Shown here is a 70-nucleotide sequence from Novosphingobium guangzhouense, a member of the family "Makes More Granules Regulator RNA (mmgR)".
The match comes from Rfam's covariance-model search (44 bits).
The family's RNA type in Rfam is small RNA.
Lineage of the source: Bacteria > Alphaproteobacteria > Sphingomonadales > Sphingomonadaceae > Novosphingobium.
The pairing is the family consensus, mapped onto this sequence.
[Rfam]
RNA sequence: UGGCUUUGCCUUUCAGGCAUCCUCUCCCAGACUCCAAGGCCGGCUCUGCCGGCCUUUUUCUUUUGGAUUG
Numbered sequence: 001u002g003g004c005u006u007u008g009c010c011u012u013u014c015a016g017g018c019a020u021c022c023u024c025u026c027c028c029a030g031a032c033u034c035c036a037a038g039g040c041c042g043g044c045u046c047u048g049c050c051g052g053c054c055u056u057u058u059u060c061u062u063u064u065g066g067a068u069u070g
Stems, first nucleotide, its partner, number of pairs: 008018004037055008